Mammalian CPEB3 ribozyme: a 76-nucleotide RNA from Alligator sinensis. The match comes from Rfam's covariance-model search (49 bits). Taxonomically the source falls in Alligator (Eukaryota, Eumetazoa, Deuterostomia, Sauria). The family's consensus secondary structure is taken from published work.
[Rfam]
RNA sequence: GGUUGCAAGUUUGAGGCCACAGUAGAGGCACUCGUGGUGCAGCCUGUCAGAUUCCAAUGAAUCUGCUAAUUCUGCU
Numbered sequence: 001g002g003u004u005g006c007a008a009g010u011u012u013g014a015g016g017c018c019a020c021a022g023u024a025g026a027g028g029c030a031c032u033c034g035u036g037g038u039g040c041a042g043c044c045u046g047u048c049a050g051a052u053u054c055c056a057a058u059g060a061a062u063c064u065g066c067u068a069a070u071u072c073u074g075c076u
Stems, first nucleotide, its partner, number of pairs: 015044003021076007028040003048065007